[Rfam]
RNA sequence: ACAGAACCCACAGGGCUUUCCACUCUCAUUAAGAAGUGUAGAAGGACUGUUGGGUCCUGUAA
Numbered sequence: 001a002c003a004g005a006a007c008c009c010a011c012a013g014g015g016c017u018u019u020c021c022a023c024u025c026u027c028a029u030u031a032a033g034a035a036g037u038g039u040a041g042a043a044g045g046a047c048u049g050u051u052g053g054g055u056c057c058u059g060u061a062a
Stems, first nucleotide, its partner, number of pairs: 002059003007054004011049003016045005022039002025036002
Dot-bracket structure: .(((..(((((((..(((((.((.((........)).)).))))).))).))))..)))...
Rfam assigns this 62-nucleotide RNA sequence from Caenorhabditis remanei to the family "mir-2229 microRNA precursor family". The source organism's lineage runs through Eukaryota, Nematoda, Rhabditidae, Peloderinae and Caenorhabditis.